[Rfam]
RNA: Small nucleolar RNA Z247
Organism: Sorghum bicolor
RNA sequence: AUGCUUGAAGUUGAUGAAUUGGUAUCCUACGUUUUUAUCGAUUUGGACCUUGAGUUCAACCCGAUGGUUUAUGCCAUCUCUGCAAGGGUUAAACCCAUCAUGGUGGCGGAGCUCUACACUCAACUAAUUAGUUUUGAGC
Numbered sequence: 001a002u003g004c005u006u007g008a009a010g011u012u013g014a015u016g017a018a019u020u021g022g023u024a025u026c027c028u029a030c031g032u033u034u035u036u037a038u039c040g041a042u043u044u045g046g047a048c049c050u051u052g053a054g055u056u057c058a059a060c061c062c063g064a065u066g067g068u069u070u071a072u073g074c075c076a077u078c079u080c081u082g083c084a085a086g087g088g089u090u091a092a093a094c095c096c097a098u099c100a101u102g103g104u105g106g107c108g109g110a111g112c113u114c115u116a117c118a119c120u121c122a123a124c125u126a127a128u129u130a131g132u133u134u135u136g137a138g139c
Base pairs, nucleotide, nucleotide: 004138005137006136007135008134095106096105097104098103